A member of the RNA family "Plastid-rpl16 group II-D1 intron" from Aloe vera, 47 nucleotides long.
RNA sequence: AAGAGCCUCGGGUUAAUAGAAACUGAGAAAAUUGACUCGGGAACAAA
Numbered sequence: 001a002a003g004a005g006c007c008u009c010g011g012g013u014u015a016a017u018a019g020a021a022a023c024u025g026a027g028a029a030a031a032u033u034g035a036c037u038c039g040g041g042a043a044c045a046a047a
Base pairs, nucleotide, nucleotide: 007041008040010038011037012036013035014034015033016032017031
Notes: Plastid-rpl16 is a non-coding RNA (ncRNA) recognised in plastids. The base pairs follow the family's consensus structure, which was predicted with LocARNA. Gene Ontology term of the family: Group II intron splicing. It is one of the family's seed sequences. For this family Rfam cites "Retrograde signaling in plants: A critical review focusing on the GUN pathway and beyond" (Richter et al., Plant Commun, 2023). The organism belongs to Aloe, within Eukaryota.